[Rfam]
About this RNA: The record is a 74-nucleotide RNA from Desulfobulbus propionicus, which matches "Makes More Granules Regulator RNA (mmgR)" in Rfam. Rfam 15.1 lists 1,791 matches to the family in 918 species. From the family's description: SuhB later renamed mmgR (makes more granules regulator) was a putative non-coding RNA found multiple times in the Agrobacterium tumefaciens genome and related alpha-proteobacteria. Gene Ontology terms of the family: response to nitrogen compound, DNA-templated transcription, termination and protein binding. The base pairs follow the family's consensus structure. The source organism's lineage runs through Bacteria, Pseudomonadati, Thermodesulfobacteriota, Desulfobulbaceae and Desulfobulbus propionicus.
RNA sequence: CAUCGUUGCCCGGGGAUUCUCUCCCAUGAUUCAAGGGCCGGAACCGCAAGGUUCCGGCCCUUUUUUUGGUCGCG
Numbered sequence: 001c002a003u004c005g006u007u008g009c010c011c012g013g014g015g016a017u018u019c020u021c022u023c024c025c026a027u028g029a030u031u032c033a034a035g036g037g038c039c040g041g042a043a044c045c046g047c048a049a050g051g052u053u054c055c056g057g058c059c060c061u062u063u064u065u066u067u068g069g070u071c072g073c074g
Stems, first nucleotide, its partner, number of pairs: 009014001036059009
Dot-bracket structure: ........(....).....................(((((((((......)))))))))...............